[Rfam]
RNA sequence: AAAAAUGCCCAUUAAAACAGUUGUACCCCAGCCAGGUGCUACUUUACCAUAUUCAGAAUUU
Numbered sequence: 001a002a003a004a005a006u007g008c009c010c011a012u013u014a015a016a017a018c019a020g021u022u023g024u025a026c027c028c029c030a031g032c033c034a035g036g037u038g039c040u041a042c043u044u045u046a047c048c049a050u051a052u053u054c055a056g057a058a059u060u061u
Stems, first nucleotide, its partner, number of pairs: 017045001019043003023039005
Rfam assigns this 61-nucleotide sequence from Chlorella sorokiniana to the family "Plastid-psbN 5UTR RNA". Plastid psbN is a non-coding RNA (ncRNA) recognised in plastids. It was reported as a conserved 11 stem-loop in the prime untranslated region (5UTR) of psbN genes. It has been reported that the motif is retained in a subset of mature transcripts in barley, which can suggests a possible role in transcript alternative 5 prime processing. Rfam classes the family as a cis-regulatory element. The family's consensus secondary structure was predicted with LocARNA.